[Rfam]
RNA sequence: AAGCGGGGCCGCGACUGGCGACUUUGCGUGGAGGCAACCACGGGGGAGCGGCCCGCGUAAUGGCACUGCCGAUCGCCUGGGCACUGGAA
Numbered sequence: 001a002a003g004c005g006g007g008g009c010c011g012c013g014a015c016u017g018g019c020g021a022c023u024u025u026g027c028g029u030g031g032a033g034g035c036a037a038c039c040a041c042g043g044g045g046g047a048g049c050g051g052c053c054c055g056c057g058u059a060a061u062g063g064c065a066c067u068g069c070c071g072a073u074c075g076c077c078u079g080g081g082c083a084c085u086g087g088a089a
Stems, first nucleotide, its partner, number of pairs: 006054007015045002017077005028041004067083004

The record is an 89-nucleotide sequence from a Candidatus Hydrogenedentota bacterium, which matches "ZMP/ZTP riboswitch aptamer (pfl RNA motif)" in Rfam.